Overview: Small nucleolar RNA SNORD18: a 77-nucleotide sequence from Hibiscus trionum. Clan: SNORD18 clan. NCBI's taxonomy places the organism under Eukaryota, eudicotyledons, Pentapetalae, Malvales, Hibiscus. The family has 16 seed sequences and 2,622 matches in Rfam 15.1.
RNA sequence: GAGAUAUGAUGAUUCUUUUAUUGGUCCGUGUUUCUGAUUUAACCGUGACCGACAUUUUUUUACCAAUCUCUGAUCUC
Number, nucleotide and partner (000 for none) at each position: 001g077002a076003g075004a074005u000006a000007u000008g000009a000010u000011g000012a000013u000014u000015c000016u000017u000018u000019u000020a000021u000022u000023g000024g000025u000026c000027c000028g000029u000030g000031u000032u000033u000034c000035u000036g000037a000038u000039u000040u000041a000042a000043c000044c000045g000046u000047g000048a000049c000050c000051g000052a000053c000054a000055u000056u000057u000058u000059u000060u000061u000062a000063c000064c000065a000066a000067u000068c000069u000070c000071u000072g000073a000074u004075c003076u002077c001